[Rfam]
RNA: FMN riboswitch aptamer (RFN element)
RNA sequence: AAUAUUCUUCGGGGCGAGGUGUAAAUCCUCACCGGUGGUGAUAGUCCAUGAGUCGCAAGAUUGAAUCGGUGAAAUUCCGAUACCGACGGUAUAGUCCGGAUGAAAGAAGAAUGGA
Numbered sequence: 001a002a003u004a005u006u007c008u009u010c011g012g013g014g015c016g017a018g019g020u021g022u023a024a025a026u027c028c029u030c031a032c033c034g035g036u037g038g039u040g041a042u043a044g045u046c047c048a049u050g051a052g053u054c055g056c057a058a059g060a061u062u063g064a065a066u067c068g069g070u071g072a073a074a075u076u077c078c079g080a081u082a083c084c085g086a087c088g089g090u091a092u093a094g095u096c097c098g099g100a101u102g103a104a105a106g107a108a109g110a111a112u113g114g115a
Base pairs, nucleotide, nucleotide: 003113004112005111006110007109008108009107010106017029018028019027031095032094033085034084035049036048037047038046044083045082052061053060054059065081066080067079068078069077087098088097089096
Dot-bracket structure: ..((((((((......(((.......))).[[((((((.....[[))))..(((....)))...(((((.......)))))]])).(((....]]))).......))))))))..